[Rfam]
RNA sequence: UGGAGCCUUAGGUCCCACCUGGGGGCGCGGCCUGAGGCACAUGGGCCCAGCCCGGCCAUGUGCCUCAGGCCGCGCCCCCAGGUGGGACCUAAGGCUCCAGGGCCUA
Numbered sequence: 001u002g003g004a005g006c007c008u009u010a011g012g013u014c015c016c017a018c019c020u021g022g023g024g025g026c027g028c029g030g031c032c033u034g035a036g037g038c039a040c041a042u043g044g045g046c047c048c049a050g051c052c053c054g055g056c057c058a059u060g061u062g063c064c065u066c067a068g069g070c071c072g073c074g075c076c077c078c079c080a081g082g083u084g085g086g087a088c089c090u091a092a093g094g095c096u097c098c099a100g101g102g103c104c105u106a
Base pairs, nucleotide, nucleotide: 002098003097004096005095006094007093010090011089012088014086015085016084021079022078023077024076025075026074027073028072029071030070031069032068033067034066035065036064040060041059042058043057
RNA: mir-8834 microRNA precursor family